[Rfam]
This 128-nucleotide RNA from Mus spicilegus belongs to the Rfam family "Small nucleolar RNA SNORA65". Clan: SNORA65 clan. By type it is an H/ACA-box small nucleolar RNA. The match comes from Rfam's covariance-model search (95 bits). Pairs were carried over by alignment from the consensus structure, which was predicted with RNAalifold. About the family: U65 belongs to the H/ACA class of snoRNAs which are thought to guide the sites of modification of uridines to pseudouridines.
RNA sequence: CUAAAUACUGUAAUGGUCCCCUUUAAAAGAACGAGGACUCAGUGCUGAGUUGAUAGGAAGCCCCAGCUAUUAGGAAACAGGGUUGUCCUACAUGUGGGUGACUCUGUGCCGAAAGCAUGGGAACAGCC
Numbered sequence: 001c002u003a004a005a006u007a008c009u010g011u012a013a014u015g016g017u018c019c020c021c022u023u024u025a026a027a028a029g030a031a032c033g034a035g036g037a038c039u040c041a042g043u044g045c046u047g048a049g050u051u052g053a054u055a056g057g058a059a060g061c062c063c064c065a066g067c068u069a070u071u072a073g074g075a076a077a078c079a080g081g082g083u084u085g086u087c088c089u090a091c092a093u094g095u096g097g098g099u100g101a102c103u104c105u106g107u108g109c110c111g112a113a114a115g116c117a118u119g120g121g122a123a124c125a126g127c128c
Stems, first nucleotide, its partner, number of pairs: 006044005017037003021033001022031002061121003065118001066116003073110002078106006086098003